[Rfam]
A member of the RNA family "Burkholderia sRNA Bp1_Cand738_SIPHT" from Trinickia symbiotica, 217 nucleotides long.
It scores 139 bits against the family's covariance model.
The family's consensus secondary structure was predicted with RNAalifold.
On this family, see Khoo et al., BMC Genomics 2012: "Computational discovery and RT-PCR validation of novel Burkholderia conserved and Burkholderia pseudomallei unique sRNAs".
Nucleotides: 217
Base pairs, nucleotide, nucleotide: 008031009030010029011028012027013026055118056117057116062079063078064077065076066075086100087099088098089097090096147185148184152180153179154178155177158176159175160174161173
Number, partner (000 for none) and nucleotide at each position: 001000a002000a003000a004000a005000a006000c007000g008031c009030c010029a011028g012027c013026g014000g015000c016000c017000a018000c019000a020000a021000c022000g023000a024000g025000g026013c027012g028011c029010u030009g031008g032000c033000a034000a035000u036000g037000g038000c039000a040000a041000c042000c043000a044000a045000c046000u047000a048000a049000u050000c051000g052000g053000a054000c055118c056117g057116u058000g059000u060000a061000a062079c063078g064077c065076c066075g067000u068000g069000c070000a071000g072000g073000g074000g075066c076065g077064g078063c079062g080000u081000a082000c083000g084000g085000u086100g087099a088098c089097g090096c091000g092000c093000g094000u095000u096090g097089c098088g099087u100086c101000u102000a103000u104000g105000a106000c107000c108000g109000g110000g111000g112000g113000a114000a115000a116057g117056u118055g119000a120000a121000c122000u123000c124000g125000a126000a127000c128000c129000g130000c131000u132000u133000g134000g135000c136000c137000c138000u139000g140000c141000a142000g143000c144000c145000a146000a147185u148184g149000c150000g151000g152180a153179c154178g155177g156000a157000u158176u159175c160174u161173a162000g163000c164000a165000g166000g167000g168000u169000u170000u171000u172000a173161u174160a175159g176158a177155u178154c179153g180152u181000c182000a183000a184148u185147g186000c187000u188000a189000c190000a191000a192000a193000a194000a195000c196000g197000a198000a199000a200000a201000u202000c203000u204000a205000u206000g207000a208000c209000a210000a211000a212000a213000a214000g215000u216000a217000a